The record is a 151-nucleotide RNA sequence from Paenibacillus albidus, which matches "FMN riboswitch aptamer (RFN element)" in Rfam.

RNA sequence: CAAGAUUCUCGGGGUAAGGUGAAAUUCCUGACCGGCGGUAAGUUCACAGCGAACGUAGCCCGCGACUCGUUAUUCUUUGCCUGCAAAGGAUAACGACUGAUCUGGUGGAAUUCCAGAGCCGACGGUAAAGUCCGGAUGAGAGAGGAUCAUA
Numbered sequence: 001c002a003a004g005a006u007u008c009u010c011g012g013g014g015u016a017a018g019g020u021g022a023a024a025u026u027c028c029u030g031a032c033c034g035g036c037g038g039u040a041a042g043u044u045c046a047c048a049g050c051g052a053a054c055g056u057a058g059c060c061c062g063c064g065a066c067u068c069g070u071u072a073u074u075c076u077u078u079g080c081c082u083g084c085a086a087a088g089g090a091u092a093a094c095g096a097c098u099g100a101u102c103u104g105g106u107g108g109a110a111u112u113c114c115a116g117a118g119c120c121g122a123c124g125g126u127a128a129a130g131u132c133c134g135g136a137u138g139a140g141a142g143a144g145g146a147u148c149a150u151a
Stems, first nucleotide, its partner, number of pairs: 004148007017029003031131002033121002035063004058119002067096007101117005123134003